The record is an 80-nucleotide RNA from Cupriavidus metallidurans, which matches "Cupriavidus-1 RNA" in Rfam. Taxonomically the source falls in Cupriavidus metallidurans (Bacteria, Betaproteobacteria, Burkholderiales, Burkholderiaceae). Pairs were carried over by alignment from the consensus structure, which is taken from published work.
[Rfam]
RNA sequence: CUUGCUCCAAGCGGUGACCGGUCAUGUGACCGAAGGCUAAGCAAGACGUGUACCGGGAAUCGGCCGAAGGCGGGUUUCCG
Numbered sequence: 001c002u003u004g005c006u007c008c009a010a011g012c013g014g015u016g017a018c019c020g021g022u023c024a025u026g027u028g029a030c031c032g033a034a035g036g037c038u039a040a041g042c043a044a045g046a047c048g049u050g051u052a053c054c055g056g057g058a059a060u061c062g063g064c065c066g067a068a069g070g071c072g073g074g075u076u077u078c079c080g
Stems, first nucleotide, its partner, number of pairs: 001045006009038001011037002013018001019032005054080008063071003